[Rfam]
RNA sequence: CAUGGACCCGGCUCCUUGUCGGGUGGCUAUGCCGGGCGCCUAUCCCUCGGCCAACG
Numbered sequence: 001c002a003u004g005g006a007c008c009c010g011g012c013u014c015c016u017u018g019u020c021g022g023g024u025g026g027c028u029a030u031g032c033c034g035g036g037c038g039c040c041u042a043u044c045c046c047u048c049g050g051c052c053a054a055c056g
Stems, first nucleotide, its partner, number of pairs: 006024006031051006
sul1 RNA: a 56-nucleotide sequence from Fulvimarina manganoxydans. A search with the family's covariance model found it, with a score of 61 bits. By type it is a riboswitch.